Shown here is a 92-nucleotide RNA sequence from Solibacillus sp. R5-41, a member of the family "pan motif".
[Rfam]
RNA sequence: UUGAUAAAAUUCACUAGAAUUGUACCUAUUUAGCAAGACAAGUAAUAGUUAAUAAAAUAUCUGCCUUGAUCUGUAUGGACAGGGACGGAAGA
Numbered sequence: 001u002u003g004a005u006a007a008a009a010u011u012c013a014c015u016a017g018a019a020u021u022g023u024a025c026c027u028a029u030u031u032a033g034c035a036a037g038a039c040a041a042g043u044a045a046u047a048g049u050u051a052a053u054a055a056a057a058u059a060u061c062u063g064c065c066u067u068g069a070u071c072u073g074u075a076u077g078g079a080c081a082g083g084g085a086c087g088g089a090a091g092a
Stems, first nucleotide, its partner, number of pairs: 003025001004023004010019002061088003064084005070079003
Dot-bracket structure: ..(((((..((......)))))).)...................................((((((((.(((....)))))))).)))....
Lineage of the source: Bacteria > Bacillati > Bacillota > Caryophanaceae > Solibacillus. Pairs were carried over by alignment from the consensus structure, which is taken from published work. It scores 46 bits against the family's covariance model.